Shown here is a 110-nucleotide RNA from Bacillus thuringiensis, a member of the family "SAM riboswitch aptamer (S box leader)".
RNA sequence: UUCUUAUUAAGAGAGGUGGAGGGACUGGCCCUUCGAAGCCUCAGCAACCUGAUUUAUGUGAUAUAAAGGUGCUAAAUCCUGUAGGAUAUAAAAGUCCUAAUAGAUAAGAA
Numbered sequence: 001u002u003c004u005u006a007u008u009a010a011g012a013g014a015g016g017u018g019g020a021g022g023g024a025c026u027g028g029c030c031c032u033u034c035g036a037a038g039c040c041u042c043a044g045c046a047a048c049c050u051g052a053u054u055u056a057u058g059u060g061a062u063a064u065a066a067a068g069g070u071g072c073u074a075a076a077u078c079c080u081g082u083a084g085g086a087u088a089u090a091a092a093a094g095u096c097c098u099a100a101u102a103g104a105u106a107a108g109a110a
Stems, first nucleotide, its partner, number of pairs: 001110008013042005021031003025081001027079002043073004048069002050065001052064002077102001082099006
About this RNA:
Gene Ontology term of the family: regulation of gene expression. It is one of the family's seed sequences.